[Rfam]
Background:
Shown here is a 79-nucleotide RNA from Microvirga vignae, a member of the family "chrB-a RNA".

RNA sequence: CACAUGGGGAUUGCGAUCUCCCCACGAGGCGACAUGCCCAAGCAUCGCAUCCGCUCUAGAAAUUCACGGAUGCACCAUG
Numbered sequence: 001c002a003c004a005u006g007g008g009g010a011u012u013g014c015g016a017u018c019u020c021c022c023c024a025c026g027a028g029g030c031g032a033c034a035u036g037c038c039c040a041a042g043c044a045u046c047g048c049a050u051c052c053g054c055u056c057u058a059g060a061a062a063u064u065c066a067c068g069g070a071u072g073c074a075c076c077a078u079g
Stems, first nucleotide, its partner, number of pairs: 005024006047073006
Dot-bracket structure: ....((((((........))))))......................((((((...............))))))......
Pairs were carried over by alignment from the consensus structure, which is taken from published work.